[Rfam]
RNA sequence: UGUCUCCUCCACCUCUCCUUUGGUGGAUUUAGCCCCCGAGCCGCAAGGCGCGGGGGCUUUUUUCU
Numbered sequence: 001u002g003u004c005u006c007c008u009c010c011a012c013c014u015c016u017c018c019u020u021u022g023g024u025g026g027a028u029u030u031a032g033c034c035c036c037c038g039a040g041c042c043g044c045a046a047g048g049c050g051c052g053g054g055g056g057c058u059u060u061u062u063u064c065u
Stems, first nucleotide, its partner, number of pairs: 008027006031058008
Description: Rfam assigns this 65-nucleotide sequence from Caenimonas sedimenti to the family "Betaproteobacteria toxic small RNA". It scores 55 bits against the family's covariance model. Pairs were carried over by alignment from the consensus structure, which was predicted with WAR. On this family, see Kimelman et al., Genome Res 2012: "A vast collection of microbial genes that are toxic to bacteria".